Description: The family of this 93-nucleotide sequence from Aquarana catesbeiana is "mir-217 microRNA precursor family". Gene Ontology terms of the family: RISC complex and miRNA-mediated post-transcriptional gene silencing. For this family Rfam cites "Vertebrate microRNA genes" (Lim et al., Science, 2003). The family's consensus secondary structure was predicted with RNAalifold.

RNA sequence: UCGAUUUUGAUGUCGCAGAUACUGCAUCAGGAACUGAUUGGAUGAUUAAUAAUUACCAUCAGUUCUUAAUGCAUUGCCUCCAGCAUCUAAUCA
Number, nucleotide and partner (000 for none) at each position: 001u000002c000003g000004a000005u000006u000007u000008u000009g000010a000011u000012g000013u000014c000015g000016c000017a000018g000019a000020u000021a000022c000023u073024g072025c071026a070027u069028c000029a067030g066031g065032a064033a063034c062035u061036g060037a059038u000039u058040g057041g056042a000043u000044g000045a000046u000047u000048a000049a000050u000051a000052a000053u000054u000055a000056c041057c040058a039059u037060c036061a035062g034063u033064u032065c031066u030067u029068a000069a027070u026071g025072c024073a023074u000075u000076g000077c000078c000079u000080c000081c000082a000083g000084c000085a000086u000087c000088u000089a000090a000091u000092c000093a000